Source information
The family of this 61-nucleotide sequence from Pristionchus pacificus is "mir-8364 microRNA precursor family".
RNA sequence: UCUUCAUUUUACAUACUAUGUCACCGGUCAGAGAGACGAGAGAGUGCGUGAAAUGAAGAGA
Numbered sequence: 001u002c003u004u005c006a007u008u009u010u011a012c013a014u015a016c017u018a019u020g021u022c023a024c025c026g027g028u029c030a031g032a033g034a035g036a037c038g039a040g041a042g043a044g045u046g047c048g049u050g051a052a053a054u055g056a057a058g059a060g061a
Stems, first nucleotide, its partner, number of pairs: 001059007010050001012048001014046004019041001021039002
The source organism's lineage runs through Eukaryota, Metazoa, Nematoda, Diplogasteromorpha and Pristionchus.